Rfam assigns this 116-nucleotide RNA sequence to the family "Small nucleolar RNA Z278". A reference for the family is Chen et al. (2003), "The high diversity of snoRNAs in plants: identification and comparative study of 120 snoRNA genes from Oryza sativa", Nucleic Acids Res. snoZ278 is a C/D box small nucleolar RNA. Its methylation guide targets have not been reported. The family's consensus secondary structure was predicted with PFOLD. By type it is a C/D-box small nucleolar RNA.

[Rfam]
RNA sequence: GCUAAUGAGGAUUUGUUGGAUAGUAAAUGAGGUGUGGUGAAGUCAAGUUCCUGCUUCUGCAGGAUGAACCUCUUGAUGAAUCCAUACUAAUAUGAUCACAAUUCAUUGACUGAAGC
Numbered sequence: 001g002c003u004a005a006u007g008a009g010g011a012u013u014u015g016u017u018g019g020a021u022a023g024u025a026a027a028u029g030a031g032g033u034g035u036g037g038u039g040a041a042g043u044c045a046a047g048u049u050c051c052u053g054c055u056u057c058u059g060c061a062g063g064a065u066g067a068a069c070c071u072c073u074u075g076a077u078g079a080a081u082c083c084a085u086a087c088u089a090a091u092a093u094g095a096u097c098a099c100a101a102u103u104c105a106u107u108g109a110c111u112g113a114a115g116c
Base pairs, nucleotide, nucleotide: 001116002115003114049064050063051062052061053060